[Rfam]
The record is a 54-nucleotide RNA sequence from Carassius auratus, which matches "UnaL2 LINE 3' element" in Rfam. By type it is a cis-regulatory element. It scores 55 bits against the family's covariance model.
RNA sequence: AUAUAUAGCAAUUGUUAGUCGCUUUGGAUAAAAGCGUCAGCUAAAUGAAUAAAU
Numbered sequence: 001a002u003a004u005a006u007a008g009c010a011a012u013u014g015u016u017a018g019u020c021g022c023u024u025u026g027g028a029u030a031a032a033a034g035c036g037u038c039a040g041c042u043a044a045a046u047g048a049a050u051a052a053a054u
Stems, first nucleotide, its partner, number of pairs: 013043001014041003020036006
The organism belongs to Carassius, within Eukaryota.